[Rfam]
RNA: U11 spliceosomal RNA
RNA sequence: AAAAAGGGCGUCUGCCAUGUUUGGCACAGCUGUGGACGGGUUUCUCUGAUACAGCUGCGGAAUCGCUAUCAAGAGAUUUCGGAUGCACAAUUUUUAGAACUCGGGGCUGUCAAUGACUGUUGUUCUUGGCGCCCCA
Numbered sequence: 001a002a003a004a005a006g007g008g009c010g011u012c013u014g015c016c017a018u019g020u021u022u023g024g025c026a027c028a029g030c031u032g033u034g035g036a037c038g039g040g041u042u043u044c045u046c047u048g049a050u051a052c053a054g055c056u057g058c059g060g061a062a063u064c065g066c067u068a069u070c071a072a073g074a075g076a077u078u079u080c081g082g083a084u085g086c087a088c089a090a091u092u093u094u095u096a097g098a099a100c101u102c103g104g105g106g107c108u109g110u111c112a113a114u115g116a117c118u119g120u121u122g123u124u125c126u127u128g129g130c131g132c133c134c135c136a
Stems, first nucleotide, its partner, number of pairs: 008086005013026005027057008038046001058081007104134004109130005115125002118122001